Archaeal large subunit ribosomal RNA: a 567-nucleotide part of an RNA from Vulcanisaeta moutnovskia. Lineage of the source: Archaea > Thermoproteati > Thermoproteales > Thermoproteaceae > Vulcanisaeta moutnovskia.
RNA sequence: ACCAGCAAGCCGCUCGGUGGAUGGCUCGGCUCAGGCGCCGAGGAAGGGCGUGGCAAGCUGCGAUAAGCCCGGGGUAGGCGCAGGCAGCCCUUGAACCCGGGAUCCCUGAAUGGGGCUUCCUACCUGGGCCGAAUAGGCCUAGGUGCUCCGGGGUUUUCUCGGAGCGGGAACCCCCCGAACGGAAACAUCUUAGUAGGGGGAGGAAGGGAAACCAACAGGGACCCCCUGAGUAGGGGCGACCGAAAGGGGGUUAGCCCAAACCAAAUCCCUGCGGGAUAACCGUGGGGAGAUGUGGGGUUGAGGGCCCGGGUAUCGCCGGGGCGACCUAGCCGAAGUGGGCUGGAAAGCCCCGCCGUAGAGGGUGAUAGCCCCGUAGGCUAAAGGCCGCCUGGCGGAGUCCCGGUGUCCCAGAGUACCACGCCUUGGUUUUGGCGUGGGAAGCCGGGGGCCACUGGUCUCUAAGGCUAAGUACGUCCUGAGACCGAUAGUGCACUAGUACCGUGAGGGAACGCUGAAAAGAACCCCGAAAGGGGAGUGAAAAGAGCCUGAAACCGGGCGGCUAAAGGA
Dot-bracket structure: .......((((((((((.....(((..((((((((((........((((((........))).....((((((...(((.......)))......))))))...)))....(((....)))........................(((((((.....)))))))......((((((.....((....))......))))).).........((....))...(((((.....((.....))....)))))..((((....(((.......((((.....)))).........)))..........((((...((((............(((...(.((((......)))))..(...).(((.......)))...))).............))))....))))............(((((((........)))))))......(((((.......)))))..)))).....)).)))))).))...............((....))....)).................................).....))))))))))......
It is one of the family's seed sequences.